This 94-nucleotide sequence from Aquilegia coerulea belongs to the Rfam family "Small nucleolar RNA Z162". Rfam links the family to the GO terms nucleolus and RNA processing. For this family Rfam cites "The high diversity of snoRNAs in plants: identification and comparative study of 120 snoRNA genes from Oryza sativa" (Chen et al., Nucleic Acids Res, 2003). The source organism's lineage runs through Eukaryota, Viridiplantae, Euphyllophyta, Ranunculaceae and Aquilegia. By type it is a C/D-box small nucleolar RNA.
RNA sequence: AUGUGCACAAUGAGGAUAGAAGUUUAUAGUUGUAAGAGAUCGAUAGAUCUAUGAAAUUAUAUUAAAAACUAGUCCUUUUCAUUCUGAGUGCUUC
Numbered sequence: 001a002u003g004u005g006c007a008c009a010a011u012g013a014g015g016a017u018a019g020a021a022g023u024u025u026a027u028a029g030u031u032g033u034a035a036g037a038g039a040u041c042g043a044u045a046g047a048u049c050u051a052u053g054a055a056a057u058u059a060u061a062u063u064a065a066a067a068a069c070u071a072g073u074c075c076u077u078u079u080c081a082u083u084c085u086g087a088g089u090g091c092u093u094c
Base pairs, nucleotide, nucleotide: 005091006090007089008088010082011081012080013079014078039048040047041046
Dot-bracket structure: ....((((.(((((........................(((....))).............................))))).....))))...